[Rfam]
RNA sequence: CUCUGGAAAGCAGGUGCUGGGUCAUUCUGAUCAAAGUGCACCUCGCCGAAGAUGUAAGCAGACAGGUUCGACCAUUGGCUGUGAUUCUUUCAGGCUCCGAGACAGAG
Numbered sequence: 001c002u003c004u005g006g007a008a009a010g011c012a013g014g015u016g017c018u019g020g021g022u023c024a025u026u027c028u029g030a031u032c033a034a035a036g037u038g039c040a041c042c043u044c045g046c047c048g049a050a051g052a053u054g055u056a057a058g059c060a061g062a063c064a065g066g067u068u069c070g071a072c073c074a075u076u077g078g079c080u081g082u083g084a085u086u087c088u089u090u091c092a093g094g095c096u097c098c099g100a101g102a103c104a105g106a107g
Base pairs, nucleotide, nucleotide: 001107002106003105004104005103012043013042014041015040016039017038045095046094047093048091049090052089054087058082059081060080061079
Dot-bracket structure: (((((......((((((....................)))))).(((((..(.(...((((.................))))....).))).))).......)))))